[Rfam]
RNA sequence: AAGUUGGAGGAUGAGGAAUUGGUCUCCUAUAUCCUCACCGGCCUUGAUCAAGACUACGACUCAGUGGUGCCCGCGGUGGCGGCACAUGUCGAACCGAUCUCAGUUGGGGAACUGUUUGCCCAAUUGACAUUGUUCGAGU
Numbered sequence: 001a002a003g004u005u006g007g008a009g010g011a012u013g014a015g016g017a018a019u020u021g022g023u024c025u026c027c028u029a030u031a032u033c034c035u036c037a038c039c040g041g042c043c044u045u046g047a048u049c050a051a052g053a054c055u056a057c058g059a060c061u062c063a064g065u066g067g068u069g070c071c072c073g074c075g076g077u078g079g080c081g082g083c084a085c086a087u088g089u090c091g092a093a094c095c096g097a098u099c100u101c102a103g104u105u106g107g108g109g110a111a112c113u114g115u116u117u118g119c120c121c122a123a124u125u126g127a128c129a130u131u132g133u134u135c136g137a138g139u
Base pairs, nucleotide, nucleotide: 004138005137007135008134089107090106091105092104